[Rfam]
RNA sequence: UAUUGUGGUGGUUUCUGUGUUUGGCAGGUCUGUAACUCCAGCAGAGCGGCCUUAAACUACCACAGAGAUCGGAACGGAGAAAGCUGUGCUGAGACUUUUCAAGCUGUUAGUUUUCAGCUUUUUGGCUCCUACAGAA
Numbered sequence: 001u002a003u004u005g006u007g008g009u010g011g012u013u014u015c016u017g018u019g020u021u022u023g024g025c026a027g028g029u030c031u032g033u034a035a036c037u038c039c040a041g042c043a044g045a046g047c048g049g050c051c052u053u054a055a056a057c058u059a060c061c062a063c064a065g066a067g068a069u070c071g072g073a074a075c076g077g078a079g080a081a082a083g084c085u086g087u088g089c090u091g092a093g094a095c096u097u098u099u100c101a102a103g104c105u106g107u108u109a110g111u112u113u114u115c116a117g118c119u120u121u122u123u124g125g126c127u128c129c130u131a132c133a134g135a136a
Stems, first nucleotide, its partner, number of pairs: 005063007023051003027047001029045004076129004099125005